Rfam assigns this 95-nucleotide RNA from Hibiscus trionum to the family "Small nucleolar RNA U54". A search with the family's covariance model found it, with a score of 48 bits.
RNA sequence: AGCUCUGUGAUUGUUCAGCCUGAUUUAGGCAAUAUACGCUAUUCUGAUUUCUCGAAAAGAAUGAACAGACAACUGUGAGAGAAAGAAUGAGAGCU
Numbered sequence: 001a002g003c004u005c006u007g008u009g010a011u012u013g014u015u016c017a018g019c020c021u022g023a024u025u026u027a028g029g030c031a032a033u034a035u036a037c038g039c040u041a042u043u044c045u046g047a048u049u050u051c052u053c054g055a056a057a058a059g060a061a062u063g064a065a066c067a068g069a070c071a072a073c074u075g076u077g078a079g080a081g082a083a084a085g086a087a088u089g090a091g092a093g094c095u
Stems, first nucleotide, its partner, number of pairs: 001095005
Description
Lineage of the source: Eukaryota > eudicotyledons > Gunneridae > Malvales > Hibiscus. Rfam describes the family as follows. U54 is a C/D box small nucleolar RNA, which acts as a methylation guide for 18S ribosomal RNA in plants. For this family Rfam cites "The high diversity of snoRNAs in plants: identification and comparative study of 120 snoRNA genes from Oryza sativa" (Chen et al., Nucleic Acids Res, 2003). Gene Ontology terms of the family: nucleolus and RNA processing. Clan: U54 clan. The family has 21 seed sequences and 614 matches in Rfam 15.1.